[Rfam]
RNA sequence: UUUGGCCUGAUUAACAGACCUACUUUAUGUACGACAUCUUGAGUUAAUGCGUUAUGUGUAAGUGCUAUCUUGAUUAGCCUUUGUAGACCGUUUCCUUCUUAGUGCCCCAUAAGUAAUAGCUGAUAAUGGCCAACACAUGCCCAAGGUGGCGAGUUUUUUUUGAUAUAUAGGAAAGUUACAUGUCUGACAAAAUGAAAGGUCAAGUGAAGUGGUUCAACGAGUCCAAAGGUUUUGGUUUCAUUACUCCAGCCGAUGGUAGCAAAGACGUAUUCGUUCACUUCUCUGCCAUUCAAGGUAACGGUUUCAAAACUCUGGCUGAAGGUCAGAACGUAGAGUUCACCAUUGAAAACGGUGCCAAAGGCCCAGCAGCAGCAAACGUAACUGCUAUCUAAUCUGCCUUUAUACCUUUUUAUUAAGCUCGCCAUGCUAAAAUGCCCUGGCGGGCUUUU
Numbered sequence: 001u002u003u004g005g006c007c008u009g010a011u012u013a014a015c016a017g018a019c020c021u022a023c024u025u026u027a028u029g030u031a032c033g034a035c036a037u038c039u040u041g042a043g044u045u046a047a048u049g050c051g052u053u054a055u056g057u058g059u060a061a062g063u064g065c066u067a068u069c070u071u072g073a074u075u076a077g078c079c080u081u082u083g084u085a086g087a088c089c090g091u092u093u094c095c096u097u098c099u100u101a102g103u104g105c106c107c108c109a110u111a112a113g114u115a116a117u118a119g120c121u122g123a124u125a126a127u128g129g130c131c132a133a134c135a136c137a138u139g140c141c142c143a144a145g146g147u148g149g150c151g152a153g154u155u156u157u158u159u160u161u162g163a164u165a166u167a168u169a170g171g172a173a174a175g176u177u178a179c180a181u182g183u184c185u186g187a188c189a190a191a192a193u194g195a196a197a198g199g200u201c202a203a204g205u206g207a208a209g210u211g212g213u214u215c216a217a218c219g220a221g222u223c224c225a226a227a228g229g230u231u232u233u234g235g236u237u238u239c240a241u242u243a244c245u246c247c248a249g250c251c252g253a254u255g256g257u258a259g260c261a262a263a264g265a266c267g268u269a270u271u272c273g274u275u276c277a278c279u280u281c282u283c284u285g286c287c288a289u290u291c292a293a294g295g296u297a298a299c300g301g302u303u304u305c306a307a308a309a310c311u312c313u314g315g316c317u318g319a320a321g322g323u324c325a326g327a328a329c330g331u332a333g334a335g336u337u338c339a340c341c342a343u344u345g346a347a348a349a350c351g352g353u354g355c356c357a358a359a360g361g362c363c364c365a366g367c368a369g370c371a372g373c374a375a376a377c378g379u380a381a382c383u384g385c386u387a388u389c390u391a392a393u394c395u396g397c398c399u400u401u402a403u404a405c406c407u408u409u410u411u412a413u414u415a416a417g418c419u420c421g422c423c424a425u426g427c428u429a430a431a432a433u434g435c436c437c438u439g440g441c442g443g444g445c446u447u448u449u
Stems, first nucleotide, its partner, number of pairs: 004020002007017003028248002031245001034242001043238001046237003050229001052227002062224001064222002068219001070217004076213001078211001082182003087177001094171003097167001099165001139150003184199002251345006264272002275333001277331002280328001282327004286322002290315003294311001351364002354362003366388001368386005391411002396406001416446009426435002